[Rfam]
RNA sequence: GUAGAUAUGGUGAUAUGGUGCCAGAAACAAUAGCGGGUAAAGUUGUGGGCGGCGUAUGCUCACUUAGCGGUGUGUUGGUCAUCGCUCUUCCCGUUCCCGUCAUUGUGUCAAAC
Numbered sequence: 001g002u003a004g005a006u007a008u009g010g011u012g013a014u015a016u017g018g019u020g021c022c023a024g025a026a027a028c029a030a031u032a033g034c035g036g037g038u039a040a041a042g043u044u045g046u047g048g049g050c051g052g053c054g055u056a057u058g059c060u061c062a063c064u065u066a067g068c069g070g071u072g073u074g075u076u077g078g079u080c081a082u083c084g085c086u087c088u089u090c091c092c093g094u095u096c097c098c099g100u101c102a103u104u105g106u107g108u109c110a111a112a113c
Stems, first nucleotide, its partner, number of pairs: 001113002004109001006107005012101003017096002020094002036076004049061001

Rfam assigns this 113-nucleotide sequence from Polypedilum vanderplanki to the family "Potassium channel RNA editing signal". The literature on the family includes a 2004 paper in Nat Struct Mol Biol by Bhalla et al., "Control of human potassium channel inactivation by editing of a small mRNA hairpin". Taxonomically the source falls in Polypedilum (Eukaryota, Metazoa, Dicondylia, Polypedilum). Pairs were carried over by alignment from the consensus structure, which is taken from published work.